[Rfam]
RNA sequence: CCAUGCAACCGGGGAAGUAGCGGUGCCCUGAACCUGCAAUCCGCUAUAGCAGGGGUGAUAGUUUUCUUGAGGGAUGUCCACUGUAGGGCUGCCCUUAGUAAGUGGCGUUGAUGUCUGGGUCUUGCGCAACAGGACUCUUCGAACCGUGUCAGGUCGGAGACGAAGCAGCACUAAGGAGAAUCUCCUGUGUGCCGCGAGGGUGCCUGGGCUGAGUUAACUGCUAAGGUAACGCUUAUGGCGGCGUUUCGAGAGAAAACUGCAUGG
Numbered sequence: 001c002c003a004u005g006c007a008a009c010c011g012g013g014g015a016a017g018u019a020g021c022g023g024u025g026c027c028c029u030g031a032a033c034c035u036g037c038a039a040u041c042c043g044c045u046a047u048a049g050c051a052g053g054g055g056u057g058a059u060a061g062u063u064u065u066c067u068u069g070a071g072g073g074a075u076g077u078c079c080a081c082u083g084u085a086g087g088g089c090u091g092c093c094c095u096u097a098g099u100a101a102g103u104g105g106c107g108u109u110g111a112u113g114u115c116u117g118g119g120u121c122u123u124g125c126g127c128a129a130c131a132g133g134a135c136u137c138u139u140c141g142a143a144c145c146g147u148g149u150c151a152g153g154u155c156g157g158a159g160a161c162g163a164a165g166c167a168g169c170a171c172u173a174a175g176g177a178g179a180a181u182c183u184c185c186u187g188u189g190u191g192c193c194g195c196g197a198g199g200g201u202g203c204c205u206g207g208g209c210u211g212a213g214u215u216a217a218c219u220g221c222u223a224a225g226g227u228a229a230c231g232c233u234u235a236u237g238g239c240g241g242c243g244u245u246u247c248g249a250g251a252g253a254a255a256a257c258u259g260c261a262u263g264g
Base pairs, nucleotide, nucleotide: 001264002263003262004261005260006259008056009055010054011029012028013027014026016024018022033053034052035051036050037049062256063255064254065253066252067251068250071247072246073245074244075243078241079240081238082237083236084235085234086233087232090228091227094225095224096223097222098221099220102218103217104215105214106213113209114208115207116206117205118204119203120202121198122197123196124195125194126193127189128188130187131186132185133184134183136179137178138177139176140175146171147170148169149168154163155162156161

Shown here is a 264-nucleotide RNA from Clostridium sp. L2-50, a member of the family "Bacterial large signal recognition particle RNA". Rfam describes the family as follows. The signal recognition particle (SRP) is a universally conserved ribonucleoprotein involved in the co-translational targeting of proteins to membranes. Rfam classes the family as a non-coding RNA gene. The match comes from Rfam's covariance-model search (194 bits). Lineage of the source: Bacteria > Bacillati > Bacillota > Clostridia > Clostridium.